[Rfam]
RNA sequence: AUUCUGAGUAUAAGCAGUCAGCGGAUCGCUCCGAUCCGCGGGUCAUUGCUCCGGCC
Dot-bracket structure: .....(((((....(...[.(((((((.....))))))).)]....))))).....